[Rfam]
RNA sequence: CCGUCCGACUCGUGAUCGUCUUCUCAACCUUCGCGUGCGGGCGUGUCCAACGGAAGACCCCCGCAAGGACGUGACUUGCGGGGGUCUUCU
Numbered sequence: 001c002c003g004u005c006c007g008a009c010u011c012g013u014g015a016u017c018g019u020c021u022u023c024u025c026a027a028c029c030u031u032c033g034c035g036u037g038c039g040g041g042c043g044u045g046u047c048c049a050a051c052g053g054a055a056g057a058c059c060c061c062c063g064c065a066a067g068g069a070c071g072u073g074a075c076u077u078g079c080g081g082g083g084g085u086c087u088u089c090u
Base pairs, nucleotide, nucleotide: 002043003042005041006040009037011035012034013033014032015031018028019027052090053089054088055087056086057085058084059083060082061081062080063079064078065077066076067075
RNA: sodF sRNA
Organism: Streptomyces vinaceus